[Rfam]
The family of this 119-nucleotide RNA sequence from Acleisanthes obtusa is "Plastid-psbA-1 3UTR RNA". The family's RNA type in Rfam is cis-regulatory element. Lineage of the source: Eukaryota > Streptophytina > Spermatophyta > Gunneridae > Acleisanthes. A reference for the family is Richter et al. (2023), "Retrograde signaling in plants: A critical review focusing on the GUN pathway and beyond", Plant Commun. The family is grouped with related families in Rfam's "Plastid-psbA 3UTR RNA clan".

RNA sequence: UCGAAGCUCCAUCUACAAAUGGAUAAAAUUUCGUUUUUAGUUUAGUGUAUACGAGUUAUUGAAAGUAAAGGGGCCGUACCGGUUUCUUGCCAGAGCAAGAAAUUGGUUAUUGCCCCUUU
Numbered sequence: 001u002c003g004a005a006g007c008u009c010c011a012u013c014u015a016c017a018a019a020u021g022g023a024u025a026a027a028a029u030u031u032c033g034u035u036u037u038u039a040g041u042u043u044a045g046u047g048u049a050u051a052c053g054a055g056u057u058a059u060u061g062a063a064a065g066u067a068a069a070g071g072g073g074c075c076g077u078a079c080c081g082g083u084u085u086c087u088u089g090c091c092a093g094a095g096c097a098a099g100a101a102a103u104u105g106g107u108u109a110u111u112g113c114c115c116c117u118u119u
Stems, first nucleotide, its partner, number of pairs: 008023005067119008076110003081104002084101005

The sequence is in the family's curated seed alignment. Rfam's curators write: Plastid psbA-1 is a non-coding RNA (ncRNA) present in plastids. The family's consensus secondary structure was predicted with LocARNA.